The family of this 74-nucleotide sequence from Hyphomicrobium denitrificans is "Makes More Granules Regulator RNA (mmgR)". Lineage of the source: Bacteria > Pseudomonadati > Hyphomicrobiales > Hyphomicrobiaceae > Hyphomicrobium denitrificans. SuhB later renamed mmgR (makes more granules regulator) was a putative non-coding RNA found multiple times in the Agrobacterium tumefaciens genome and related alpha-proteobacteria.
RNA sequence: AAUCGCUGCCCAAUUUGGGCGUUUCCUCCCUAGACUUGGGCCGUUCUUACGAACGGCCUUUCUUUAUGCGGCAU
Numbered sequence: 001a002a003u004c005g006c007u008g009c010c011c012a013a014u015u016u017g018g019g020c021g022u023u024u025c026c027u028c029c030c031u032a033g034a035c036u037u038g039g040g041c042c043g044u045u046c047u048u049a050c051g052a053a054c055g056g057c058c059u060u061u062c063u064u065u066a067u068g069c070g071g072c073a074u
Stems, first nucleotide, its partner, number of pairs: 008020004038059009

It is annotated as a small RNA.